[Rfam]
RNA sequence: GACUUAAUUUAACGAGCAAGCUUAAGCCGGUAGGUGUAGGCGUAGCGAAAGCGAGUCUGAAUAGGGCGUUUAGUUCGUUGGAUUAGACCCGAAACCGGGUGAUCUAGCCAUGACCAGGUUGAAGGUGCGGUAACACGCACUGGAGGACCGAACCCACGCCUGUUGAAAAAGUCGGGGAUGAGUUGUGGCUAGGGGUGAAAGGCCAAUCAAACUCGGAAAUAGCUGGUU
Numbered sequence: 001g002a003c004u005u006a007a008u009u010u011a012a013c014g015a016g017c018a019a020g021c022u023u024a025a026g027c028c029g030g031u032a033g034g035u036g037u038a039g040g041c042g043u044a045g046c047g048a049a050a051g052c053g054a055g056u057c058u059g060a061a062u063a064g065g066g067c068g069u070u071u072a073g074u075u076c077g078u079u080g081g082a083u084u085a086g087a088c089c090c091g092a093a094a095c096c097g098g099g100u101g102a103u104c105u106a107g108c109c110a111u112g113a114c115c116a117g118g119u120u121g122a123a124g125g126u127g128c129g130g131u132a133a134c135a136c137g138c139a140c141u142g143g144a145g146g147a148c149c150g151a152a153c154c155c156a157c158g159c160c161u162g163u164u165g166a167a168a169a170a171g172u173c174g175g176g177g178a179u180g181a182g183u184u185g186u187g188g189c190u191a192g193g194g195g196u197g198a199a200a201g202g203c204c205a206a207u208c209a210a211a212c213u214c215g216g217a218a219a220u221a222g223c224u225g226g227u228u
Stems, first nucleotide, its partner, number of pairs: 005085013020041004026035003045052002055067004088226002091223001095216006104192011115180001117149004124141006153177003157174002160171002194204003
Dot-bracket structure: ....(((((((((((((..((((..(((....)))..))))...((....))..((((.....)))).....)))))))))))))..((.(...((((((...((((((((((((.((((...((((((......))))))....))))...(((.((.((........)).)))))..).))))))))))).(((.....)))......))))))......).))..
Bacterial large subunit ribosomal RNA: a 228-nucleotide part of an RNA from Roseibium suaedae. The family's consensus secondary structure is taken from published work.